[Rfam]
RNA sequence: UGCCUCCCCUGGCUCCAACAGCCCUUUAUGUGCUGUAUUCAUCCCGAUAAGAAAAUCUCUUUUAAUGAGGACUGAUAUACUUACGAACUCUCUAGAGUCAUAAUUAGAGCAAACUAAUUGAAGUUGUGUUUUGACACACUUUCCAAAUUCACGGGUACUGCAUGACAUAUUCACAACACUACUGCUGCACACCGUGGUGACAGCAAAAUCAUUAGGCUAAUAACACUUAUUUGCAUUCUGAUCAUGCCAGCACGGCCGUUAAACGCUGCCUCAACCAGCACUCGUUUACUCAGAAAGUUUCCACUGGAAGAUAUUAACAGUAAUUAUUAGCACCUCAGUGAAUCUCUGAUGUUAAGGA
Numbered sequence: 001u002g003c004c005u006c007c008c009c010u011g012g013c014u015c016c017a018a019c020a021g022c023c024c025u026u027u028a029u030g031u032g033c034u035g036u037a038u039u040c041a042u043c044c045c046g047a048u049a050a051g052a053a054a055a056u057c058u059c060u061u062u063u064a065a066u067g068a069g070g071a072c073u074g075a076u077a078u079a080c081u082u083a084c085g086a087a088c089u090c091u092c093u094a095g096a097g098u099c100a101u102a103a104u105u106a107g108a109g110c111a112a113a114c115u116a117a118u119u120g121a122a123g124u125u126g127u128g129u130u131u132u133g134a135c136a137c138a139c140u141u142u143c144c145a146a147a148u149u150c151a152c153g154g155g156u157a158c159u160g161c162a163u164g165a166c167a168u169a170u171u172c173a174c175a176a177c178a179c180u181a182c183u184g185c186u187g188c189a190c191a192c193c194g195u196g197g198u199g200a201c202a203g204c205a206a207a208a209u210c211a212u213u214a215g216g217c218u219a220a221u222a223a224c225a226c227u228u229a230u231u232u233g234c235a236u237u238c239u240g241a242u243c244a245u246g247c248c249a250g251c252a253c254g255g256c257c258g259u260u261a262a263a264c265g266c267u268g269c270c271u272c273a274a275c276c277a278g279c280a281c282u283c284g285u286u287u288a289c290u291c292a293g294a295a296a297g298u299u300u301c302c303a304c305u306g307g308a309a310g311a312u313a314u315u316a317a318c319a320g321u322a323a324u325u326a327u328u329a330g331c332a333c334c335u336c337a338g339u340g341a342a343u344c345u346c347u348g349a350u351g352u353u354a355a356g357g358a
Stems, first nucleotide, its partner, number of pairs: 036351004042341002045338001049335001051333001058071005077327003081323004088097003107283003120142004125138005154257002183199005203247003216234002219231004
ncRNA Repressor of NFAT (nuclear factor of activated T cells): a 358-nucleotide RNA sequence from Copsychus sechellarum. The literature on the family includes a 2005 paper in Science by Willingham et al., "A strategy for probing the function of noncoding RNAs finds a repressor of NFAT". The family has 24 seed sequences and 522 matches in Rfam 15.1. Rfam classes the family as a non-coding RNA gene. The source organism's lineage runs through Eukaryota, Deuterostomia, Gnathostomata, Sauropsida and Copsychus.